[Rfam]
RNA sequence: UUUGAAAAAAGGCAAACCUAUUGAAAAGUAGGGACGCAAAGCUAAGGGCCUAAGGUAACUUCGUUUACUAUGGCAGCCGGUUGCCAAU
Numbered sequence: 001u002u003u004g005a006a007a008a009a010a011g012g013c014a015a016a017c018c019u020a021u022u023g024a025a026a027a028g029u030a031g032g033g034a035c036g037c038a039a040a041g042c043u044a045a046g047g048g049c050c051u052a053a054g055g056u057a058a059c060u061u062c063g064u065u066u067a068c069u070a071u072g073g074c075a076g077c078c079g080g081u082u083g084c085c086a087a088u
Stems, first nucleotide, its partner, number of pairs: 012037002017032006040082004046078002048074003055068004
The record is an 88-nucleotide sequence from Brevibacillus sp. WF146, which matches "c-di-GMP-I riboswitch aptamer" in Rfam. On this family, see Weinberg et al., Nucleic Acids Res 2007: "Identification of 22 candidate structured RNAs in bacteria using the CMfinder comparative genomics pipeline". The base pairs follow the family's consensus structure, which is taken from published work. Lineage of the source: Bacteria > Bacillota > Bacilli > Caryophanales > Brevibacillus.